[Rfam]
Description:
This 68-nucleotide RNA sequence from Balaenoptera physalus belongs to the Rfam family "Selenocysteine insertion sequence 1".
RNA sequence: UUCGCUUCAUGACAGGAAGGACUGAAACGUCUCAUGGAUGCCUGGUCCUUCCCUGAUGUCCUCACGGC
Dot-bracket structure: ...((.........(((((((((.....(((.....)))....)))))))))..............))

Pairs were carried over by alignment from the consensus structure, which is taken from published work. From the family's description: The incorporation of selenocysteine into a protein sequence is directed by an in-frame UGA codon (usually a stop codon) within the coding region of the mRNA. Selenoprotein mRNAs contain a conserved secondary structure in the 3' UTR that is required for the distinction of UGA stop from UGA selenocysteine. The selenocysteine insertion sequence (SECIS) is around 60 nt in length and adopts a hairpin structure which is sufficiently well-defined and conserved to act as a computational screen for selenoprotein genes. NCBI's taxonomy places the organism under Eukaryota, Vertebrata, Teleostomi, Tetrapoda, Balaenoptera. Gene Ontology term of the family: selenocysteine incorporation.